[Rfam]
RNA sequence: GCCGGCUUGUCAGGAGAGAGCUCCAUCCGGGGCCGCCGAAGGCGCAGAGGUUCACCCCUCGAACGCUCAGGCAAAAGGACUGACAAGCGGCU
Numbered sequence: 001g002c003c004g005g006c007u008u009g010u011c012a013g014g015a016g017a018g019a020g021c022u023c024c025a026u027c028c029g030g031g032g033c034c035g036c037c038g039a040a041g042g043c044g045c046a047g048a049g050g051u052u053c054a055c056c057c058c059u060c061g062a063a064c065g066c067u068c069a070g071g072c073a074a075a076a077g078g079a080c081u082g083a084c085a086a087g088c089g090g091c092u
Stems, first nucleotide, its partner, number of pairs: 006087008020033004035072003038068002042066003048059002